[Rfam]
RNA: Glm Y RNA activator of glmS mRNA
RNA sequence: UGUUGCUCAUUCAACUGGUUAUGAUUGCGCUGCUGAUUGGCAGAGACUUUCGCUCAUAACACCUGGAAUGACGCCAAAAGAAAAGGUGCCUAUCGUCCAGCAGAACGAUAACAGUAUGCGCAAGCCGACUUUAUCAAACAUCGGGCGACACGUUGAGUGAGGCACCACCUA
Numbered sequence: 001u002g003u004u005g006c007u008c009a010u011u012c013a014a015c016u017g018g019u020u021a022u023g024a025u026u027g028c029g030c031u032g033c034u035g036a037u038u039g040g041c042a043g044a045g046a047c048u049u050u051c052g053c054u055c056a057u058a059a060c061a062c063c064u065g066g067a068a069u070g071a072c073g074c075c076a077a078a079a080g081a082a083a084a085g086g087u088g089c090c091u092a093u094c095g096u097c098c099a100g101c102a103g104a105a106c107g108a109u110a111a112c113a114g115u116a117u118g119c120g121c122a123a124g125c126c127g128a129c130u131u132u133a134u135c136a137a138a139c140a141u142c143g144g145g146c147g148a149c150a151c152g153u154u155g156a157g158u159g160a161g162g163c164a165c166c167a168c169c170u171a
Stems, first nucleotide, its partner, number of pairs: 005074002007071006019059006027053003085166007094147005107135005149159003